Shown here is a 195-nucleotide sequence from Aedes aegypti, a member of the family "U2 spliceosomal RNA". Pairs were carried over by alignment from the consensus structure, which is taken from published work. A reference for the family is Thomas et al. (1990), "The spliceosomal snRNAs of Caenorhabditis elegans", Nucleic Acids Res. Lineage of the source: Eukaryota > Neoptera > Endopterygota > Culicomorpha > Stegomyia. Rfam classes the family as a spliceosomal small nuclear RNA.
RNA sequence: AUCGCUUCUCGGCCUAAAGGCUAAGAUCAAAGUGUAGUAUCUGUUCUUAUCAGCUUAACAUCUGAUAGCUCUCCCAUAGGGAGACAACAAAUGUUAAACUGAUUUUUGGAAAAGGGCGGAACGGUCAGGGGCUUGCUCCACUUCCGCCACGGGUUGACCCGGUAUUGCAGUACCGCCGGGAUCGGCCCACGUUAA
Numbered sequence: 001a002u003c004g005c006u007u008c009u010c011g012g013c014c015u016a017a018a019g020g021c022u023a024a025g026a027u028c029a030a031a032g033u034g035u036a037g038u039a040u041c042u043g044u045u046c047u048u049a050u051c052a053g054c055u056u057a058a059c060a061u062c063u064g065a066u067a068g069c070u071c072u073c074c075c076a077u078a079g080g081g082a083g084a085c086a087a088c089a090a091a092u093g094u095u096a097a098a099c100u101g102a103u104u105u106u107u108g109g110a111a112a113a114g115g116g117c118g119g120a121a122c123g124g125u126c127a128g129g130g131g132c133u134u135g136c137u138c139c140a141c142u143u144c145c146g147c148c149a150c151g152g153g154u155u156g157a158c159c160c161g162g163u164a165u166u167g168c169a170g171u172a173c174c175g176c177c178g179g180g181a182u183c184g185g186c187c188c189a190c191g192u193u194a195a
Stems, first nucleotide, its partner, number of pairs: 007026003011022004048067006070084006115148007128139004151188006158180006